The record is a 74-nucleotide RNA from Gadus morhua, which matches "mir-129 microRNA precursor family" in Rfam. It scores 87 bits against the family's covariance model. The literature on the family includes a 2002 paper in Curr Biol by Lagos-Quintana et al., "Identification of tissue-specific microRNAs from mouse".
RNA sequence: GCGGGUCUUUUUGCGGUCUGGGCUUGCUGUUCCCACAGCCUUAGCCAGGAAGCCCUUACCCCAAAAAGCAUCCG
Dot-bracket structure: ......(((((((.(((..((((.(.((..................)).).))))..))).)))))))......